mir-2238 microRNA precursor family: an 82-nucleotide sequence from Pristionchus pacificus.
NCBI's taxonomy places the organism under Eukaryota, Bilateria, Chromadorea, Rhabditina, Pristionchus.
Rfam's curators put it in the seed alignment.
A reference for the family is de Wit et al. (2009), "Repertoire and evolution of miRNA genes in four divergent nematode species", Genome Res.
Rfam links the family to the GO terms miRNA-mediated post-transcriptional gene silencing and RISC complex.
[Rfam]
Nucleotides: 082
Stems, first nucleotide, its partner, number of pairs: 001082001003080004009074002015071002018068003022064004028057001030056001032055004037050001
Number, partner (000 for none) and nucleotide at each position: 001082c002000u003080a004079g005078u006077c007000u008000g009074c010073c011000g012000a013000c014000u015071u016070c017000c018068c019067g020066u021000c022064u023063a024062c025061u026000c027000c028057u029000u030056u031000c032055g033054u034053c035052a036000u037050u038000g039000a040000u041000a042000c043000g044000a045000a046000u047000u048000c049000g050037a051000a052035u053034g054033a055032c056030a057028a058000u059000c060000g061025a062024g063023u064022g065000g066020g067019u068018g069000a070016g071015a072000a073010g074009g075000a076000a077006g078005a079004c080003u081000u082001g